[Rfam]
Proteobacterial sRNA psRNA2: a 222-nucleotide RNA sequence from Aquaspirillum sp. LM1. Rfam classes the family as a small RNA. A reference for the family is Gvakharia et al. (2010), "Computational prediction and transcriptional analysis of sRNAs in Nitrosomonas europaea", FEMS Microbiol Lett.
Nucleotides: 222
Base pairs, nucleotide, nucleotide: 001067002066003065004064005063006062007061009060010059014025015024016023017022027058028057029056030055031054032053033052034051035050037048038047070219075165076164077163081158083157086155090107091106092104093103094102095101096100109152111150114144183213184212187210188209189208190207191206193202194201
Number, partner (000 for none) and nucleotide at each position: 001067g002066g003065g004064u005063u006062a007061c008000u009060c010059c011000c012000u013000g014025g015024c016023g017022c018000u019000c020000u021000c022017g023016c024015g025014c026000u027058g028057u029056u030055u031054u032053g033052a034051u035050g036000a037048a038047g039000a040000u041000u042000c043000g044000c045000a046000c047038c048037u049000c050035u051034a052033u053032c054031a055030a056029a057028a058027c059010g060009g061007g062006u063005a064004a065003c066002c067001c068000c069000a070219c071000c072000c073000u074000u075165u076164g077163g078000c079000a080000a081158g082000g083157c084000c085000c086155u087000g088000c089000u090107g091106u092104c093103a094102g095101a096100u097000c098000a099000a100096g101095u102094c103093u104092g105000a106091a107090c108000u109152u110000c111150u112000a113000c114144a115000a116000u117000u118000u119000a120000g121000c122000u123000u124000c125000u126000g127000c128000u129000u130000u131000c132000c133000a134000g135000u136000g137000g138000c139000g140000c141000a142000g143000a144114u145000a146000c147000g148000g149000c150111a151000a152109a153000c154000g155086a156000u157083g158081c159000u160000u161000c162000a163077c164076c165075g166000g167000g168000c169000u170000c171000a172000g173000c174000a175000g176000c177000a178000a179000u180000g181000a182000c183213u184212c185000c186000g187210g188209c189208c190207g191206a192000c193202a194201u195000g196000g197000c198000a199000c200000a201194a202193u203000g204000c205000g206191u207190c208189g209188g210187c211000a212184g213183a214000a215000c216000u217000c218000a219070g220000c221000u222000u